This 92-nucleotide RNA from Planktothrix agardhii belongs to the Rfam family "Glutamine riboswitch aptamer (glnA leader)". The literature on the family includes a 2015 paper in Cell Rep by Ren et al., "Structural and Dynamic Basis for Low-Affinity, High-Selectivity Binding of L-Glutamine by the Glutamine Riboswitch".

[Rfam]
Nucleotides: 092
Base pairs, nucleotide, nucleotide: 003088004087005086006085007084009059010058011057013055062089068079069078070077
Number, partner (000 for none) and nucleotide at each position: 001000a002000c003088c004087g005086u006085u007084c008000a009059u010058c011057u012000c013055c014000c015000c016000c017000a018000a019000a020000u021000g022000c023000u024000a025000a026000a027000u028000c029000a030000a031000g032000a033000g034000g035000g036000a037000c038000g039000c040000a041000u042000u043000c044000c045000g046000g047000u048000g049000u050000u051000u052000g053000a054000g055013g056000a057011a058010g059009a060000c061000g062089g063000a064000a065000g066000u067000a068079g069078g070077g071000a072000a073000u074000u075000u076000u077070c078069c079068c080000g081000a082000a083000g084007g085006a086005a087004c088003g089062c090000a091000c092000a